[Rfam]
RNA sequence: UCGGGCCGCAUUGCAGUCGCCCGGCUGUCUCAAGGCAUUUCGCCCAAGCACUGC
Numbered sequence: 001u002c003g004g005g006c007c008g009c010a011u012u013g014c015a016g017u018c019g020c021c022c023g024g025c026u027g028u029c030u031c032a033a034g035g036c037a038u039u040u041c042g043c044c045c046a047a048g049c050a051c052u053g054c
Base pairs, nucleotide, nucleotide: 001024002023003022004021005020006019013054014053015052016051017050034044035043036042

This 54-nucleotide RNA sequence belongs to the Rfam family "chrB-b RNA". Pairs were carried over by alignment from the consensus structure, which is taken from published work. Rfam's curators put it in the seed alignment. It is annotated as a cis-regulatory element.